Rfam assigns this 70-nucleotide sequence from Carassius auratus to the family "Small nucleolar RNA SNORD2". Rfam classes the family as a C/D-box small nucleolar RNA. On this family, see Zhou et al., Gene 2004: "Identification of a novel box C/D snoRNA from mouse nucleolar cDNA library". Its family is annotated with nucleolus and RNA processing in the Gene Ontology.

RNA sequence: GUAUGACAUGAUGGUAUCAUCUUUCGGGACGGACCUAUAAUGAAGACAUUUACAACUUAACUGAUCAUAC
Numbered sequence: 001g002u003a004u005g006a007c008a009u010g011a012u013g014g015u016a017u018c019a020u021c022u023u024u025c026g027g028g029a030c031g032g033a034c035c036u037a038u039a040a041u042g043a044a045g046a047c048a049u050u051u052a053c054a055a056c057u058u059a060a061c062u063g064a065u066c067a068u069a070c
Stems, first nucleotide, its partner, number of pairs: 001070006